Overview: The record is a 47-nucleotide RNA sequence from Staphylococcus epidermidis, which matches "PreQ1 (pre queuosine) riboswitch aptamer" in Rfam. The organism belongs to Staphylococcus epidermidis, within Bacteria. The sequence is in the family's curated seed alignment. About the family: This family is a bacterial riboswitch that binds to the metabolite preQ1, an intermediate in the biosynthesis of the modified nucleoside queuosine from GTP. One example of this riboswitch is located in the leader of the Bacillus subtilis ykvJKLM (queCDEF) operon which encodes four genes necessary for queuosine production. PreQ1 binding to the riboswitch aptamer is thought to induce premature transcription termination within the leader to down-regulate expression of these genes. Gene Ontology term of the family: queuosine biosynthetic process.

RNA sequence: AUAACAGAGGUUCCUAGCCGAAACCCUCUAUAAAAAACUAGACAUGA
Dot-bracket structure: .....(((((....[[........))))).........]].......